mir-172 microRNA precursor family: a 134-nucleotide sequence from Abrus precatorius. From the family's description: mir-172 has been experimentally verified in Arabidopsis thaliana. This family is thought to target mRNAs coding for APETALA2-like transcription factors. The base pairs follow the family's consensus structure, which was predicted with PFOLD.
RNA sequence: UUGUUUGCGGAUGUAGCAUCAUCAAGAUUCACAUGCAAAUGUUUGUGGAUAGGACCCUGAUGCAAUCCAAGUGCUCUUCCAAUCCAUUGGUUAUUUUGAAGUGAGAAUCUUGAUGAUGCUGCAUCAGCAAUAAA
Dot-bracket structure: .........(((((((((((((((((((((.((....................................................................)).))))))))))))))))))))).........
Numbered sequence: 001u002u003g004u005u006u007g008c009g010g011a012u013g014u015a016g017c018a019u020c021a022u023c024a025a026g027a028u029u030c031a032c033a034u035g036c037a038a039a040u041g042u043u044u045g046u047g048g049a050u051a052g053g054a055c056c057c058u059g060a061u062g063c064a065a066u067c068c069a070a071g072u073g074c075u076c077u078u079c080c081a082a083u084c085c086a087u088u089g090g091u092u093a094u095u096u097u098g099a100a101g102u103g104a105g106a107a108u109c110u111u112g113a114u115g116a117u118g119c120u121g122c123a124u125c126a127g128c129a130a131u132a133a134a
Stems, first nucleotide, its partner, number of pairs: 010125021032103002